[Rfam]
RNA sequence: AUUGCUUCUUGGCCUUUUGGCUAAGACCAAGUGUAGUAUCUUUUCUUAUCAGUUUAAUAUUUGAUACAUCCUCUAUCCGAAGACAAUAUAUUAAAUGGAUUUUUGGAACUAGGAAUUGGAAUAGGAGCUUGCUCUGUCCACUCCGUGCAUCAACCUGGUAUUGCAGUACCUCCAGGAAUGGUGCACAAAAC
Dot-bracket structure: ......(((.((((....)))).)))....................((((((........))))))..((.((.....)).))............................(((.(.((....((((....)))).)).).)))..((((((.(((((.............)))))..)))))).......
Shown here is a 191-nucleotide RNA sequence from Nannospalax galili, a member of the family "U2 spliceosomal RNA".
Gene Ontology terms of the family: U2 snRNP, pre-mRNA branch point binding and mRNA branch site recognition.
A search with the family's covariance model found it, with a score of 165 bits.
Pairs were carried over by alignment from the consensus structure, which is taken from published work.